[Rfam]
RNA: Molybdenum/Tungsten riboswitch aptamer (Moco RNA motif)
Organism: Paraglaciecola sp. T6c
RNA sequence: CAGGUGGUUUAACUCCGAGCCUUCAUACCUAAAUCAGAAGACAAGGUAUGUUGGCCGCGAAGUGCGUUCGCAAGAAUGUGUCAUUCGCCAGGGUUGUGAGAGAAAUCAAACAGCCUCCCCGUAAGUGCCAAGGCGAUAAGGCCCGGCAACU
Numbered sequence: 001c002a003g004g005u006g007g008u009u010u011a012a013c014u015c016c017g018a019g020c021c022u023u024c025a026u027a028c029c030u031a032a033a034u035c036a037g038a039a040g041a042c043a044a045g046g047u048a049u050g051u052u053g054g055c056c057g058c059g060a061a062g063u064g065c066g067u068u069c070g071c072a073a074g075a076a077u078g079u080g081u082c083a084u085u086c087g088c089c090a091g092g093g094u095u096g097u098g099a100g101a102g103a104a105a106u107c108a109a110a111c112a113g114c115c116u117c118c119c120c121g122u123a124a125g126u127g128c129c130a131a132g133g134c135g136a137u138a139a140g141g142c143c144c145g146g147c148a149a150c151u
Stems, first nucleotide, its partner, number of pairs: 004144001006142001011137001013135001015133002019055003024050006034041002057088005091116007100107002118127001